This 335-nucleotide RNA sequence from Entomortierella parvispora belongs to the Rfam family "RNase MRP". RNase MRP is an enzymatically active ribonucleoprotein with two distinct roles in eukaryotes. In mitochondria it plays a direct role in the initiation of mitochondrial DNA replication. In the nucleus it is involved in precursor rRNA processing, where it cleaves the internal transcribed spacer 1 between 18S and 5.8S rRNAs. A search with the family's covariance model found it, with a score of 91 bits. The source organism's lineage runs through Eukaryota, Mortierellomycota, Mortierellomycotina, Mortierellomycetes and Entomortierella. The literature on the family includes a 2005 paper in Nucleic Acids Res by Piccinelli et al., "Identification and analysis of ribonuclease P and MRP RNA in a broad range of eukaryotes".

RNA sequence: AGACCACCCGCAGAAUCGCAUAUUGAAGCAUCACAUUUCUACGACAAGGCUGGGCAACCAGACCUUGCUCCAUAAUUGAAAUGCUUUAGGGAAAGUCCUCGGACCUCACGACAGAAAGUGUCACCGAUAAUUCCUUACCGGUAUUGCCUUGUCCAUCAAAGAUUGAUUGUUUCGCACUUGGGCCAAGAUUCCACCACUCUGUGGUGGAUGAAUGCUCCAUAACGAUCUGAUUUCUUGGCUCGGCGUUUGUCAUGGUUCACAGUCAUGCGAUUGCGGUUGUCAUUCUUCAUUGAAUGAUGAUUGUAACUCAACGGGGCUCACUCGCGACCGUGGUC
Numbered sequence: 001a002g003a004c005c006a007c008c009c010g011c012a013g014a015a016u017c018g019c020a021u022a023u024u025g026a027a028g029c030a031u032c033a034c035a036u037u038u039c040u041a042c043g044a045c046a047a048g049g050c051u052g053g054g055c056a057a058c059c060a061g062a063c064c065u066u067g068c069u070c071c072a073u074a075a076u077u078g079a080a081a082u083g084c085u086u087u088a089g090g091g092a093a094a095g096u097c098c099u100c101g102g103a104c105c106u107c108a109c110g111a112c113a114g115a116a117a118g119u120g121u122c123a124c125c126g127a128u129a130a131u132u133c134c135u136u137a138c139c140g141g142u143a144u145u146g147c148c149u150u151g152u153c154c155a156u157c158a159a160a161g162a163u164u165g166a167u168u169g170u171u172u173c174g175c176a177c178u179u180g181g182g183c184c185a186a187g188a189u190u191c192c193a194c195c196a197c198u199c200u201g202u203g204g205u206g207g208a209u210g211a212a213u214g215c216u217c218c219a220u221a222a223c224g225a226u227c228u229g230a231u232u233u234c235u236u237g238g239c240u241c242g243g244c245g246u247u248u249g250u251c252a253u254g255g256u257u258c259a260c261a262g263u264c265a266u267g268c269g270a271u272u273g274c275g276g277u278u279g280u281c282a283u284u285c286u287u288c289a290u291u292g293a294a295u296g297a298u299g300a301u302u303g304u305a306a307c308u309c310a311a312c313g314g315g316g317c318u319c320a321c322u323c324g325c326g327a328c329c330g331u332g333g334u335c
Base pairs, nucleotide, nucleotide: 002335003334004333005332006331007330009326010325011324014272015271016270017269018268019267023089024088025087026086027085028084029083030082031081094318095317097316098315099314100313110122111121112120113119123142124141125140126139128137129136130135146244147243148242155231156230157229158228160226168224169223170222171221180217181216182215183214200210201209202208274303275302276301277300278299279298280297281296282295283294284293285292